[Rfam]
RNA sequence: AACCGACAUCAGGGAUUCGUUCUGGGAACCCUGGCCGACAGCCAGGUAGGAAUUCAUCCCCAGUUCUUUCAUUUGUUGCUCGCCAAUCACCCGGGUGACCACAUUUUUGCUGUAAGCAUCUGCCAGCUGGCGCGCCUGCGACGCCAGGUAAGCGGCGUUACAGAUAUUCGGCGGCAUGUUGCCGAGGUCUUUGGC
Numbered sequence: 001a002a003c004c005g006a007c008a009u010c011a012g013g014g015a016u017u018c019g020u021u022c023u024g025g026g027a028a029c030c031c032u033g034g035c036c037g038a039c040a041g042c043c044a045g046g047u048a049g050g051a052a053u054u055c056a057u058c059c060c061c062a063g064u065u066c067u068u069u070c071a072u073u074u075g076u077u078g079c080u081c082g083c084c085a086a087u088c089a090c091c092c093g094g095g096u097g098a099c100c101a102c103a104u105u106u107u108u109g110c111u112g113u114a115a116g117c118a119u120c121u122g123c124c125a126g127c128u129g130g131c132g133c134g135c136c137u138g139c140g141a142c143g144c145c146a147g148g149u150a151a152g153c154g155g156c157g158u159u160a161c162a163g164a165u166a167u168u169c170g171g172c173g174g175c176a177u178g179u180u181g182c183c184g185a186g187g188u189c190u191u192u193g194g195c
Stems, first nucleotide, its partner, number of pairs: 005189003012032003016028003020024001033043003050059001062077003078135002081132005087126001092122006099112001102109002136163003140159006167186006

The family of this 195-nucleotide RNA sequence from Mangrovibacter sp. MFB070 is "Yersinia sRNA 276". On this family, see Nuss et al., PLoS Genet 2015: "Transcriptomic profiling of Yersinia pseudotuberculosis reveals reprogramming of the Crp regulon by temperature and uncovers Crp as a master regulator of small RNAs". The source organism's lineage runs through Bacteria, Pseudomonadota, Enterobacterales, Enterobacteriaceae and Mangrovibacter. The family's RNA type in Rfam is antisense RNA. It scores 190 bits against the family's covariance model.